[Rfam]
RNA: Guanidine-II riboswitch aptamer (mini-ykkC)
Organism: Pseudomonas cavernae
RNA sequence: UCGUGAGGACGACCUCACCACUCAUCGAGUGACCCAGCGGGGACGACCCCU
Numbered sequence: 001u002c003g004u005g006a007g008g009a010c011g012a013c014c015u016c017a018c019c020a021c022u023c024a025u026c027g028a029g030u031g032a033c034c035c036a037g038c039g040g041g042g043a044c045g046a047c048c049c050c051u
Base pairs, nucleotide, nucleotide: 001020003018004017005016006015007014008013039050040049041048042047